Shown here is a 223-nucleotide RNA sequence from Desulfohalobium retbaense, a member of the family "Group II catalytic intron D1-D4-6". It is one of the family's seed sequences.
[Rfam]
RNA sequence: AAAGAGCCUUACGGUGAAGGGUUAGCGCCCCACACCGACCCCGAGUCAUGCGUUGACGGCCGUAAGGUCGGCGGCGAAGCGUUGACAGGGGCACGCACGGGCCAGCCAUUGAGCUGCGAAAUAAAAUGGUCCGGGACGCCGACGCUGUUAAGACAAGCGGAAGGCAACACCAAGGAUGGCGAUAUGCGCGAGCCGUCCGAGGGUCCCGCGCAGUCGAAGACCC
Numbered sequence: 001a002a003a004g005a006g007c008c009u010u011a012c013g014g015u016g017a018a019g020g021g022u023u024a025g026c027g028c029c030c031c032a033c034a035c036c037g038a039c040c041c042c043g044a045g046u047c048a049u050g051c052g053u054u055g056a057c058g059g060c061c062g063u064a065a066g067g068u069c070g071g072c073g074g075c076g077a078a079g080c081g082u083u084g085a086c087a088g089g090g091g092c093a094c095g096c097a098c099g100g101g102c103c104a105g106c107c108a109u110u111g112a113g114c115u116g117c118g119a120a121a122u123a124a125a126a127u128g129g130u131c132c133g134g135g136a137c138g139c140c141g142a143c144g145c146u147g148u149u150a151a152g153a154c155a156a157g158c159g160g161a162a163g164g165c166a167a168c169a170c171c172a173a174g175g176a177u178g179g180c181g182a183u184a185u186g187c188g189c190g191a192g193c194c195g196u197c198c199g200a201g202g203g204u205c206c207c208g209c210g211c212a213g214u215c216g217a218a219g220a221c222c223c
Base pairs, nucleotide, nucleotide: 012037013036014035015034016033019031020030021029023191025189026188039091040090041089042088045086046085047084048083049081050080051076052075053074054073055072057070058069059068060067061066110217111215113214114213115212116211117210118209132208133207134206135205136204137203138165139164140163143159144158145157146156170202171201174198175197176196177195178194179193180192
A reference for the family is Lehmann and Schmidt (2003), "Group II introns: structure and catalytic versatility of large natural ribozymes", Crit Rev Biochem Mol Biol.